[Rfam]
RNA: Bacterial RNase P class A
Nucleotides: 368
Base pairs, nucleotide, nucleotide: 001364002363003362004361005360006359007358008357009356010355011353012305013304014303015302016301017300018299020036021035023033024032025031026030041351042350043349045348046347047346048345049344050211051210052209053208057241058240059239060238062207063206064205065204066203067081068080069079070078071077082096083094084093085092086091097202098201102200103199104196105195106194119141120140121137122136123135124134125133126132149167150166151165152164153163169191170189171188172187173186174185175184176183177182215261216260217259218258224252225251226250227249228248229247236244237242268288269287270285273282274281275280
Number, partner (000 for none) and nucleotide at each position: 001364u002363g003362a004361g005360u006359c007358g008357u009356c010355c011353a012305g013304a014303c015302g016301g017300u018299c019000g020036c021035g022000u023033c024032a025031g026030u027000u028000u029000u030026a031025c032024u033023g034000c035021c036020g037000a038000g039000g040000a041351a042350c043349g044000u045348c046347c047346g048345g049344g050211c051210u052209c053208c054000u055000a056000a057241g058240a059239g060238c061000a062207c063206g064205a065204u066203g067081g068080u069079g070078g071077c072000u073000a074000a075000c076000g077071g078070c079069c080068a081067c082096c083094c084093g085092g086091g087000g088000u089000g090000a091086c092085c093084c094083g095000c096082g097202a098201g099000c100000u101000a102200g103199u104196g105195c106194c107000a108000c109000a110000g111000a112000g113000a114000a115000c116000a117000g118000a119141c120140c121137g122136c123135c124134a125133a126132c127000g128000g129000a130000u131000a132126g133125u134124u135123g136122g137121u138000a139000a140120g141119g142000g143000u144000g145000a146000a147000a148000c149167g150166g151165u152164g153163g154000a155000g156000u157000a158000a159000g160000a161000g162000a163153c164152c165151a166150c167149c168000a169191g170189a171188g172187g173186u174185g175184a176183a177182g178000g179000u180000g181000a182177c183176u184175u185174c186173a187172u188171c189170u190000g191169c192000u193000a194106g195105g196104u197000a198000a199103a200102c201098c202097u203066c204065a205064u206063c207062g208053g209052g210051a211050g212000c213000a214000a215261g216260a217259c218258c219000a220000a221000a222000c223000a224252g225251u226250g227249g228248a229247c230000g231000c232000u233000a234000a235000u236244u237242a238060g239059c240058u241057c242237u243000u244236a245000u246000a247229g248228u249227c250226c251225a252224c253000g254000g255000g256000u257000a258218g259217g260216u261215u262000g263000c264000u265000a266000g267000a268288g269287c270285c271000u272000u273282c274281u275280g276000g277000u278000a279000a280275c281274a282273g283000u284000u285270g286000c287269g288268c289000c290000u291000a292000g293000a294000u295000a296000a297000a298000u299018g300017g301016c302015c303014g304013u305012c306000c307000g308000c309000g310000c311000c312000g313000g314000c315000a316000g317000g318000c319000a320000u321000u322000a323000u324000g325000c326000c327000u328000u329000a330000c331000c332000g333000g334000c335000g336000c337000g338000a339000c340000a341000g342000a343000a344049c345048c346047c347046g348045g349043c350042g351041u352000a353011u354000c355010g356009g357008g358007c359006g360005g361004c362003u363002c364001a365000u366000c367000c368000c